[Rfam]
Description
The family of this 74-nucleotide RNA from Hipposideros armiger is "Small nucleolar RNA SNORD113/SNORD114 family". A search with the family's covariance model found it, with a score of 63 bits. The base pairs follow the family's consensus structure, which is taken from published work. The imprinted human domain at 14q32 contains two clusters of tandemly repeated small nucleolar RNAs named 14q(I) and 14q(II) snoRNAs. These two clusters are named SNORD113 and SNORD114 respectively in the HGNC approved gene symbol nomenclature. It is annotated as a C/D-box small nucleolar RNA.
RNA sequence: UGGACCAGUGAUGGUGACCUGUGGCAUAGGAGUCAUGGAUAAUGAAAAUAUAUAUCUGAAGCUCUGAGGUCUAA
Numbered sequence: 001u002g003g004a005c006c007a008g009u010g011a012u013g014g015u016g017a018c019c020u021g022u023g024g025c026a027u028a029g030g031a032g033u034c035a036u037g038g039a040u041a042a043u044g045a046a047a048a049u050a051u052a053u054a055u056c057u058g059a060a061g062c063u064c065u066g067a068g069g070u071c072u073a074a
Base pairs, nucleotide, nucleotide: 002072003071004070005069006068